The family of this 92-nucleotide sequence from Vitis vinifera is "small nucleolar RNA snoR114". The literature on the family includes a 2009 paper in Nucleic Acids Res by Chen and Wu, "Mining small RNA sequencing data: a new approach to identify small nucleolar RNAs in Arabidopsis". Pairs were carried over by alignment from the consensus structure, which was predicted with RNAalifold. It is one of the family's seed sequences. The source organism's lineage runs through Eukaryota, Pentapetalae, rosids, Viteae and Vitis. It is annotated as a C/D-box small nucleolar RNA.
RNA sequence: GGGCAGUGACGAAAAAUUUGCGCUAAAAUGUGAUGACUGGGUCUCAUCACCAUCGUCUGAUCUUUCGGACGAGAACUCGCGCAUCCGAGCUC
Numbered sequence: 001g002g003g004c005a006g007u008g009a010c011g012a013a014a015a016a017u018u019u020g021c022g023c024u025a026a027a028a029u030g031u032g033a034u035g036a037c038u039g040g041g042u043c044u045c046a047u048c049a050c051c052a053u054c055g056u057c058u059g060a061u062c063u064u065u066c067g068g069a070c071g072a073g074a075a076c077u078c079g080c081g082c083a084u085c086c087g088a089g090c091u092c
Base pairs, nucleotide, nucleotide: 001092002091003090004089